This 102-nucleotide RNA sequence from Polycladospora coralii belongs to the Rfam family "Purine riboswitch aptamer". Lineage of the source: Bacteria > Bacillati > Bacillota > Caryophanales > Polycladospora.

[Rfam]
RNA sequence: ACUUAAAUGGAUGAUCUUUCUCAUAUAUGCUUAGGAAUAGGGCCUAAGUGUUUCUACGAGGAAACCGUAAAUUUCCUAACUAUGAGAGAAAUCUUUCAUUUA
Numbered sequence: 001a002c003u004u005a006a007a008u009g010g011a012u013g014a015u016c017u018u019u020c021u022c023a024u025a026u027a028u029g030c031u032u033a034g035g036a037a038u039a040g041g042g043c044c045u046a047a048g049u050g051u052u053u054c055u056a057c058g059a060g061g062a063a064a065c066c067g068u069a070a071a072u073u074u075c076c077u078a079a080c081u082a083u084g085a086g087a088g089a090a091a092u093c094u095u096u097c098a099u100u101u102a
Stems, first nucleotide, its partner, number of pairs: 018088008029049007059077006

A search with the family's covariance model found it, with a score of 86 bits.